[Rfam]
RNA sequence: CCUACUAAACUGUUAGACGGAUAGCUUGGCUUAAAUAGCGAUGAAGGACGUGGCAAGUUGCGAAAAGCUCUGGCGAGUUGCAUGCAAACAUUGAACCAGAGAUCUCCUAAUGUGAAACACAAUUUAUUCCGAGAGGAAUGUCUACGCCGGGAAUUGAAACAUCUUAGUACCGGUAGGAAAAGAAAAUAAAUAAUGAUUCCCCUAUUAGCAGCGAGCGAAAAGGGAAUAGGGCAAACCGAAUCUUUAUUCGAAAGGAUGUAAGAGAUGUGGUGGAGAUUAAGACUAAGUCAACGAAUCAAAGUUUUCUGGAAAGGAAUACCUUAGAGGGUGAUAGUCCCGUAGAUGAAGUUGAUAUGUUAUACUCCAAAAGAGUAGAGCUUCCCGGAUUGGAAGUUCGAAUAUGGCAGAAUUAACUGCUAACCCUAAAUAUUAAUUUAAGUCCGAUAGCGUACGAGUACCGCGAGGGAAAGCUGAAAAGUACUCUCACCAGAGGGUUAAAAGACUUGAAAUCUAACAGUUACAAGAUUGUUACUGCCCUAAGGGGUUGUAACGUACGUUUGGGAAAACGG
Numbered sequence: 001c002c003u004a005c006u007a008a009a010c011u012g013u014u015a016g017a018c019g020g021a022u023a024g025c026u027u028g029g030c031u032u033a034a035a036u037a038g039c040g041a042u043g044a045a046g047g048a049c050g051u052g053g054c055a056a057g058u059u060g061c062g063a064a065a066a067g068c069u070c071u072g073g074c075g076a077g078u079u080g081c082a083u084g085c086a087a088a089c090a091u092u093g094a095a096c097c098a099g100a101g102a103u104c105u106c107c108u109a110a111u112g113u114g115a116a117a118c119a120c121a122a123u124u125u126a127u128u129c130c131g132a133g134a135g136g137a138a139u140g141u142c143u144a145c146g147c148c149g150g151g152a153a154u155u156g157a158a159a160c161a162u163c164u165u166a167g168u169a170c171c172g173g174u175a176g177g178a179a180a181a182g183a184a185a186a187u188a189a190a191u192a193a194u195g196a197u198u199c200c201c202c203u204a205u206u207a208g209c210a211g212c213g214a215g216c217g218a219a220a221a222g223g224g225a226a227u228a229g230g231g232c233a234a235a236c237c238g239a240a241u242c243u244u245u246a247u248u249c250g251a252a253a254g255g256a257u258g259u260a261a262g263a264g265a266u267g268u269g270g271u272g273g274a275g276a277u278u279a280a281g282a283c284u285a286a287g288u289c290a291a292c293g294a295a296u297c298a299a300a301g302u303u304u305u306c307u308g309g310a311a312a313g314g315a316a317u318a319c320c321u322u323a324g325a326g327g328g329u330g331a332u333a334g335u336c337c338c339g340u341a342g343a344u345g346a347a348g349u350u351g352a353u354a355u356g357u358u359a360u361a362c363u364c365c366a367a368a369a370g371a372g373u374a375g376a377g378c379u380u381c382c383c384g385g386a387u388u389g390g391a392a393g394u395u396c397g398a399a400u401a402u403g404g405c406a407g408a409a410u411u412a413a414c415u416g417c418u419a420a421c422c423c424u425a426a427a428u429a430u431u432a433a434u435u436u437a438a439g440u441c442c443g444a445u446a447g448c449g450u451a452c453g454a455g456u457a458c459c460g461c462g463a464g465g466g467a468a469a470g471c472u473g474a475a476a477a478g479u480a481c482u483c484u485c486a487c488c489a490g491a492g493g494g495u496u497a498a499a500a501g502a503c504u505u506g507a508a509a510u511c512u513a514a515c516a517g518u519u520a521c522a523a524g525a526u527u528g529u530u531a532c533u534g535c536c537c538u539a540a541g542g543g544g545u546u547g548u549a550a551c552g553u554a555c556g557u558u559u560g561g562g563a564a565a566a567c568g569g
Base pairs, nucleotide, nucleotide: 008519009518010517011516012515013514014513015512016511017510023504024471025470028442029441030439031438032437033436034435035434036432037431045108046107047106048105049062050061051060068101069100070099071098072097073096077089078088079087112120113119114118127138128137129136130135145176146174147173148172149171150170156163157162186194187193198225199224200223201222208216209215228424229423230422231421236270237269238268246257247256248255249254279360281358282357295344296343297342301317303316304315305314306313320324326338327337328336375396376395377394378393379392380391381390403418404417405416406415407414458465459464528551529550530549531548532547534545535544536543537542555568556567557566